mir-631 microRNA precursor family: a 72-nucleotide sequence from Neomonachus schauinslandi. The literature on the family includes a 2010 paper in BMC Res Notes by Brameier, "Genome-wide comparative analysis of microRNAs in three non-human primates".

RNA sequence: GGGGAGCCUGGUCGGCCUGGCCCAGACCUCAGCUACUAGCUGGCGGACUGAGUCAGGGGGCCGAGGCUCUCC
Numbered sequence: 001g002g003g004g005a006g007c008c009u010g011g012u013c014g015g016c017c018u019g020g021c022c023c024a025g026a027c028c029u030c031a032g033c034u035a036c037u038a039g040c041u042g043g044c045g046g047a048c049u050g051a052g053u054c055a056g057g058g059g060g061c062c063g064a065g066g067c068u069c070u071c072c
Stems, first nucleotide, its partner, number of pairs: 001072006009064001010062004016057006023050003027046002029043006